The family of this 108-nucleotide RNA from Pan troglodytes is "Mitochondrial DNA control region secondary structure A". Rfam classes the family as an antisense RNA. The family's consensus secondary structure is taken from published work. Rfam's curators put it in the seed alignment.

RNA sequence: UAUUUUCAUGAGGAGGCAAUUUUGGGUACUACCCAAGUAUCGACCCACCCCCCUACGACAAUUCCAUGUAUAUCGUGCAUUACUGCUAGCCACCAUGAAUAUUACAUA
Numbered sequence: 001u002a003u004u005u006u007c008a009u010g011a012g013g014a015g016g017c018a019a020u021u022u023u024g025g026g027u028a029c030u031a032c033c034c035a036a037g038u039a040u041c042g043a044c045c046c047a048c049c050c051c052c053c054u055a056c057g058a059c060a061a062u063u064c065c066a067u068g069u070a071u072a073u074c075g076u077g078c079a080u081u082a083c084u085g086c087u088a089g090c091c092a093c094c095a096u097g098a099a100u101a102u103u104a105c106a107u108a
Base pairs, nucleotide, nucleotide: 005099006098007097008096009095010094012091013090016086017085018084022036023035024034025033026032027031037059038058040055042053066080067079068078069077070076

The literature on the family includes a 2008 paper in Mol Biol Evol by Pereira et al., "Evidence for variable selective pressures at a large secondary structure of the human mitochondrial DNA control region".